[Rfam]
RNA sequence: UCAUUACCAUAAUGGCCAUAGCGGUAGUGCUCAUGCUGUGACCCUGUCAGAUUCUAAUGAAUCUGCACAUUCUGCU
Numbered sequence: 001u002c003a004u005u006a007c008c009a010u011a012a013u014g015g016c017c018a019u020a021g022c023g024g025u026a027g028u029g030c031u032c033a034u035g036c037u038g039u040g041a042c043c044c045u046g047u048c049a050g051a052u053u054c055u056a057a058u059g060a061a062u063c064u065g066c067a068c069a070u071u072c073u074g075c076u
Base pairs, nucleotide, nucleotide: 014043015042017040020076021075022074023073024072026070027039028038029037048065049064050063051062052061053060054059
Dot-bracket structure: .............[[.[..(((((.((((.......)))].]]....(((((((....)))))))....).)))))
The family of this 76-nucleotide RNA from Alligator sinensis is "Mammalian CPEB3 ribozyme". Rfam 15.1 lists 5,706 matches to the family in 197 species. The base pairs follow the family's consensus structure, which is taken from published work. The match comes from Rfam's covariance-model search (38 bits).